[Rfam]
RNA sequence: CCUUCGCUGAUGAUAAUCAUUUGACUUUCGUUCUUCUGAGCUUGCUGAAGCCACACUUAUUGAUCUGAGGAGG
Numbered sequence: 001c002c003u004u005c006g007c008u009g010a011u012g013a014u015a016a017u018c019a020u021u022u023g024a025c026u027u028u029c030g031u032u033c034u035u036c037u038g039a040g041c042u043u044g045c046u047g048a049a050g051c052c053a054c055a056c057u058u059a060u061u062g063a064u065c066u067g068a069g070g071a072g073g
Stems, first nucleotide, its partner, number of pairs: 001073003005069001
RNA: Small nucleolar RNA SNORD59
Organism: Anhinga anhinga